[Rfam]
RNA sequence: CGAGUCGGCCGGGCGGCCGCGGCGUCCGGAACCGUGCGGUACCCCGUGCAGGCCGGUGUCGAGGAAAGUCCGGACUCCGCAGAGCAGGGUGGUUGUUAACGGCAACCCGGGGCGACCCGCGGGACAGUGCCACAGAGAACAGACCGCCCGCUGCCCAGUGCGGCGGGUAAGGGUGAAACGGUGCGGUAAGAGCGCACCAGCGCCGCGAGUGAUCGCGGCGGCUAGGUAAACCCCACCCGGAGCAAGGCCGAAGUCCGCACCGUCGGCGGUGCGGGUGCGCGAGUGCAUGAGGACUGCUCGUCCGAGCUCGCGGGUUGGCUGCUGGAGGCGCCCGGCGACGGGUGUCGGAGAUGGAUGGUCGCCCCCGGCCUCACGGCUGGGACAGGAUCCGGCUUACAGGCCGGCUCGUUCG
Numbered sequence: 001c002g003a004g005u006c007g008g009c010c011g012g013g014c015g016g017c018c019g020c021g022g023c024g025u026c027c028g029g030a031a032c033c034g035u036g037c038g039g040u041a042c043c044c045c046g047u048g049c050a051g052g053c054c055g056g057u058g059u060c061g062a063g064g065a066a067a068g069u070c071c072g073g074a075c076u077c078c079g080c081a082g083a084g085c086a087g088g089g090u091g092g093u094u095g096u097u098a099a100c101g102g103c104a105a106c107c108c109g110g111g112g113c114g115a116c117c118c119g120c121g122g123g124a125c126a127g128u129g130c131c132a133c134a135g136a137g138a139a140c141a142g143a144c145c146g147c148c149c150g151c152u153g154c155c156c157a158g159u160g161c162g163g164c165g166g167g168u169a170a171g172g173g174u175g176a177a178a179c180g181g182u183g184c185g186g187u188a189a190g191a192g193c194g195c196a197c198c199a200g201c202g203c204c205g206c207g208a209g210u211g212a213u214c215g216c217g218g219c220g221g222c223u224a225g226g227u228a229a230a231c232c233c234c235a236c237c238c239g240g241a242g243c244a245a246g247g248c249c250g251a252a253g254u255c256c257g258c259a260c261c262g263u264c265g266g267c268g269g270u271g272c273g274g275g276u277g278c279g280c281g282a283g284u285g286c287a288u289g290a291g292g293a294c295u296g297c298u299c300g301u302c303c304g305a306g307c308u309c310g311c312g313g314g315u316u317g318g319c320u321g322c323u324g325g326a327g328g329c330g331c332c333c334g335g336c337g338a339c340g341g342g343u344g345u346c347g348g349a350g351a352u353g354g355a356u357g358g359u360c361g362c363c364c365c366c367g368g369c370c371u372c373a374c375g376g377c378u379g380g381g382a383c384a385g386g387a388u389c390c391g392g393c394u395u396a397c398a399g400g401c402c403g404g405c406u407c408g409u410u411c412g
Base pairs, nucleotide, nucleotide: 001408002407003406004405005404006403007402008401009400010399011397012363013362014361015360016359017358018357020061021060022059023058024057025056026055028053066395067394068393070392071391072390073389074388075242076241077240078239082299083298084297085296087238088237089236090235091234092106093105094104095103096102107121108119109118110117111116122233123232127231128230129227130226131225144172145171146168147167148166149165150164151163152162153161154160180198181197182196183195184194185193200222201220202219203218204217205216206215207214208213246320247319248318249317279311280310281309282308283307284306291303292302293301294300327346328345329344330343331342332341333340334339

Rfam assigns this 412-nucleotide RNA sequence from Gordonia iterans to the family "Bacterial RNase P class A". The match comes from Rfam's covariance-model search (265 bits). The family's RNA type in Rfam is ribozyme.